[Rfam]
RNA sequence: AUUGUGUGUGAGUCUUUCACUGGGCGUGCUUAGCUAGAAAUUUAUUUACCAUAUUGCUAGCUGCCUUGUGAAGUGCUUACGUGUAAU
Number, nucleotide and partner (000 for none) at each position: 001a000002u000003u000004g084005u083006g082007u081008g080009u079010g078011a077012g076013u075014c000015u073016u000017u071018c070019a069020c068021u000022g000023g065024g064025c000026g000027u000028g000029c000030u060031u059032a058033g057034c056035u000036a000037g000038a000039a000040a000041u000042u000043u000044a000045u000046u000047u000048a000049c000050c000051a000052u000053a000054u000055u000056g034057c033058u032059a031060g030061c000062u000063g000064c024065c023066u000067u000068g020069u019070g018071a017072a000073g015074u000075g013076c012077u011078u010079a009080c008081g007082u006083g005084u004085a000086a000087u000

The record is an 87-nucleotide sequence from Drosophila willistoni, which matches "mir-980 microRNA precursor family" in Rfam. Its family is annotated with miRNA-mediated post-transcriptional gene silencing and RISC complex in the Gene Ontology. Rfam 15.1 lists 121 matches to the family in 99 species. The match comes from Rfam's covariance-model search (66 bits). Taxonomically the source falls in Sophophora (Eukaryota, Pterygota, Eremoneura, Drosophilini).